RNA sequence: AUUUUAUACCGAAGGGUGGAGAGAUCGGGCUCUACGAAACCCUGGCAACCUUAUCACUUCCGAUAAAAGGUGCCAAAUCCCGCCGCUCAGAUAAUACUGUCGGAGUGGAAAUAUAAAAU
Numbered sequence: 001a002u003u004u005u006a007u008a009c010c011g012a013a014g015g016g017u018g019g020a021g022a023g024a025u026c027g028g029g030c031u032c033u034a035c036g037a038a039a040c041c042c043u044g045g046c047a048a049c050c051u052u053a054u055c056a057c058u059u060c061c062g063a064u065a066a067a068a069g070g071u072g073c074c075a076a077a078u079c080c081c082g083c084c085g086c087u088c089a090g091a092u093a094a095u096a097c098u099g100u101c102g103g104a105g106u107g108g109a110a111a112u113a114u115a116a117a118a119u
Stems, first nucleotide, its partner, number of pairs: 001119008013043005021032003026082004044074004049070002051066004078111001083108006
Dot-bracket structure: ((((((((....(((((...(((..[[[[)))......)))))((((.((((((........))))..))))))...(]]]]((((((..............))))))..)))))))))
Shown here is a 119-nucleotide sequence from Flavilitoribacter nigricans, a member of the family "SAM riboswitch aptamer (S box leader)". Its family is annotated with regulation of gene expression in the Gene Ontology. The match comes from Rfam's covariance-model search (83 bits).